Source information: Rfam assigns this 88-nucleotide sequence from Vulpes vulpes to the family "mir-8799 microRNA precursor family". The organism belongs to Vulpes, within Eukaryota. The match comes from Rfam's covariance-model search (61 bits). Pairs were carried over by alignment from the consensus structure, which was predicted with RNAalifold. The family is grouped with related families in Rfam's "mir-8791 microRNA precursor clan".
RNA sequence: GGGGGAGCGCCGGAUCCUGCGCUGUGUCCCCGGCGCCAUGUGCUCCUGGGCCUGCGCUGUUGGAUUCGCCCUCCAGGGGCAGUCCCAU
Numbered sequence: 001g002g003g004g005g006a007g008c009g010c011c012g013g014a015u016c017c018u019g020c021g022c023u024g025u026g027u028c029c030c031c032g033g034c035g036c037c038a039u040g041u042g043c044u045c046c047u048g049g050g051c052c053u054g055c056g057c058u059g060u061u062g063g064a065u066u067c068g069c070c071c072u073c074c075a076g077g078g079g080c081a082g083u084c085c086c087a088u
Base pairs, nucleotide, nucleotide: 001088003086004085005084006083009080010079016077017076019074021072024069025068026067027064028063030062031059032058033057034056035055036054040052042051043050044049